[Rfam]
RNA: SAM riboswitch aptamer (S box leader)
Organism: Planococcus salinus
RNA sequence: CUCUUAUCACGAGUGGCGGAGGGAAUAGGCCCUACGAUGCCCGGCAACCAACAAGCAAUUUGCUUGGAAAGGUGCUAAAUCCUACAGAUCUGAACAAAGGUCUGGCAGAUGAGAG
Numbered sequence: 001c002u003c004u005u006a007u008c009a010c011g012a013g014u015g016g017c018g019g020a021g022g023g024a025a026u027a028g029g030c031c032c033u034a035c036g037a038u039g040c041c042c043g044g045c046a047a048c049c050a051a052c053a054a055g056c057a058a059u060u061u062g063c064u065u066g067g068a069a070a071g072g073u074g075c076u077a078a079a080u081c082c083u084a085c086a087g088a089u090c091u092g093a094a095c096a097a098a099g100g101u102c103u104g105g106c107a108g109a110u111g112a113g114a115g
Base pairs, nucleotide, nucleotide: 001115002114003113004112005111006110007109008108013042015041016040017039021032022031023030026084027083028082029081043076044075045074046073048072049071052066053065054064055063080107085104086103087102088101089100090099